mir-83 microRNA precursor family: an 86-nucleotide sequence from Hymenochirus boettgeri. The organism belongs to Hymenochirus, within Eukaryota. The family's consensus secondary structure was predicted with RNAalifold.
RNA sequence: UAAACUGGAGGGCUGAAUUAAUACUGGGCUAGUUAAUAAACCAGAGAUUAUUAACCUAGCCCAGUAUUAAUUCAGCUUUUCGGUUU
Numbered sequence: 001u002a003a004a005c006u007g008g009a010g011g012g013c014u015g016a017a018u019u020a021a022u023a024c025u026g027g028g029c030u031a032g033u034u035a036a037u038a039a040a041c042c043a044g045a046g047a048u049u050a051u052u053a054a055c056c057u058a059g060c061c062c063a064g065u066a067u068u069a070a071u072u073c074a075g076c077u078u079u080u081c082g083g084u085u086u
Base pairs, nucleotide, nucleotide: 012076013075014074015073016072017071018070019069020068021067022066024064025063026062027061029059030058032056034053035052